[Rfam]
RNA: Small Cajal body specific RNA 24
RNA sequence: CUGACAUUUAUUUUUAUGCAGUUUCUUCUCAAGGUGAAGAUAACUCUUUGUAAAUGUCCUGAAGAAAUACAUUAUAGUAGCUUUCUGUUCACCUUUUAUAAGUAAAACGGGCGAAUUGUUCCACUACUGACAUUU
Numbered sequence: 001c002u003g004a005c006a007u008u009u010a011u012u013u014u015u016a017u018g019c020a021g022u023u024u025c026u027u028c029u030c031a032a033g034g035u036g037a038a039g040a041u042a043a044c045u046c047u048u049u050g051u052a053a054a055u056g057u058c059c060u061g062a063a064g065a066a067a068u069a070c071a072u073u074a075u076a077g078u079a080g081c082u083u084u085c086u087g088u089u090c091a092c093c094u095u096u097u098a099u100a101a102g103u104a105a106a107a108c109g110g111g112c113g114a115a116u117u118g119u120u121c122c123a124c125u126a127c128u129g130a131c132a133u134u135u
Stems, first nucleotide, its partner, number of pairs: 003058009020045004024040005075129006094109001096107002
Dot-bracket structure: ..(((((((((........(((((((((.......))))).))))....)))))))))................((((((.............(.((........)).)..............))))))......